[Rfam]
RNA sequence: AUAUUGCACGUAGAGUGUAGGUAAGAAGCUGCGCUCAGGUUCGAGCCGAGCGAAGCGAGACAGCGUUGCGCUUGUCGCAACGACCCGUAGAGUGAGGCCAAAGGCUGAAUAAUCCUGCACGACUUAUUU
Numbered sequence: 001a002u003a004u005u006g007c008a009c010g011u012a013g014a015g016u017g018u019a020g021g022u023a024a025g026a027a028g029c030u031g032c033g034c035u036c037a038g039g040u041u042c043g044a045g046c047c048g049a050g051c052g053a054a055g056c057g058a059g060a061c062a063g064c065g066u067u068g069c070g071c072u073u074g075u076c077g078c079a080a081c082g083a084c085c086c087g088u089a090g091a092g093u094g095a096g097g098c099c100a101a102a103g104g105c106u107g108a109a110u111a112a113u114c115c116u117g118c119a120c121g122a123c124u125u126a127u128u129u
Base pairs, nucleotide, nucleotide: 015120016119017118018117019116020115021114022112032094033093034092035091040089042087043086047057048056064082065081066080067079068078069077

Overview: RtT RNA: a 129-nucleotide sequence from Providencia sneebia. This family represents a bacterial cis-regulatory element known as RtT RNA. The exact function of RtT is unknown although it is thought that it may be involved in changing the cellular response in relation to amino acid starvation. Gene Ontology term of the family: cellular response to amino acid starvation. The family's RNA type in Rfam is cis-regulatory element. Rfam 15.1 lists 651 matches to the family in 204 species. NCBI's taxonomy places the organism under Bacteria, Gammaproteobacteria, Enterobacterales, Morganellaceae, Providencia sneebia.